Rfam assigns this 77-nucleotide RNA sequence from Solanum commersonii to the family "Small nucleolar RNA J33". Lineage of the source: Eukaryota > Pentapetalae > Solanoideae > Solaneae > Solanum. Pairs were carried over by alignment from the consensus structure. Rfam links the family to the GO terms RNA processing and nucleolus. Rfam classes the family as a C/D-box small nucleolar RNA. A search with the family's covariance model found it, with a score of 45 bits.

RNA sequence: CAGUCCGAGGAAUGAUGUACUACAGAAAAGCACUGAAGUUGCAAGCUUUUCUUGACAUGGCUGAGGAUGAAGGUUUG
Numbered sequence: 001c002a003g004u005c006c007g008a009g010g011a012a013u014g015a016u017g018u019a020c021u022a023c024a025g026a027a028a029a030g031c032a033c034u035g036a037a038g039u040u041g042c043a044a045g046c047u048u049u050u051c052u053u054g055a056c057a058u059g060g061c062u063g064a065g066g067a068u069g070a071a072g073g074u075u076u077g
Stems, first nucleotide, its partner, number of pairs: 001077003005073002